[Rfam]
RNA: small nucleolar RNA snoR114
RNA sequence: GAGCUGUGAGGAUUUGGCUUUAGCGUUGGUUGGGUCCUUCGCACUACUCUGAUGUCUCAGAUGUGAUAUAGCCCUUUGUCUGAGCUC
Dot-bracket structure: ((((...............................................................................))))
Numbered sequence: 001g002a003g004c005u006g007u008g009a010g011g012a013u014u015u016g017g018c019u020u021u022a023g024c025g026u027u028g029g030u031u032g033g034g035u036c037c038u039u040c041g042c043a044c045u046a047c048u049c050u051g052a053u054g055u056c057u058c059a060g061a062u063g064u065g066a067u068a069u070a071g072c073c074c075u076u077u078g079u080c081u082g083a084g085c086u087c
Stems, first nucleotide, its partner, number of pairs: 001087004